[Rfam]
RNA sequence: CAACCCAUACAGCGAUGUAUGGCUGAACGUCCAGAAGUCAGCAGAGGCCGUAGUACCAUGAAGGGGAAUGUCCCAUGUCGAGGGAGAACAAACGGAGCGGGAAGGGC
Numbered sequence: 001c002a003a004c005c006c007a008u009a010c011a012g013c014g015a016u017g018u019a020u021g022g023c024u025g026a027a028c029g030u031c032c033a034g035a036a037g038u039c040a041g042c043a044g045a046g047g048c049c050g051u052a053g054u055a056c057c058a059u060g061a062a063g064g065g066g067a068a069u070g071u072c073c074c075a076u077g078u079c080g081a082g083g084g085a086g087a088a089c090a091a092a093c094g095g096a097g098c099g100g101g102a103a104g105g106g107c
Stems, first nucleotide, its partner, number of pairs: 001025002005022007038045002047107003056100002071096003
RNA: Group II catalytic intron D1-D4-1